[Rfam]
Shown here is a 102-nucleotide sequence from Bacillus subtilis, a member of the family "Glycine riboswitch aptamer". This family represents the bacterial glycine riboswitch. The source organism's lineage runs through Bacteria, Bacillati, Bacilli, Bacillaceae and Bacillus. Pairs were carried over by alignment from the consensus structure. The sequence is in the family's curated seed alignment.
RNA sequence: AUGACAGCAAGGGGAGAGACCUGACCGAAAACCUCGGGAUACAGGCGCCGAAGGAGCAAACUGCGGAGUGAAUCUCUCAGGCAAAAGAACUCUUGCUCGACG
Numbered sequence: 001a002u003g004a005c006a007g008c009a010a011g012g013g014g015a016g017a018g019a020c021c022u023g024a025c026c027g028a029a030a031a032c033c034u035c036g037g038g039a040u041a042c043a044g045g046c047g048c049c050g051a052a053g054g055a056g057c058a059a060a061c062u063g064c065g066g067a068g069u070g071a072a073u074c075u076c077u078c079a080g081g082c083a084a085a086a087g088a089a090c091u092c093u094u095g096c097u098c099g100a101c102g
Base pairs, nucleotide, nucleotide: 006097007096008095009094010093011092012091013090020045021044022043023042047082048081049080050078051077054076055075056074060069061068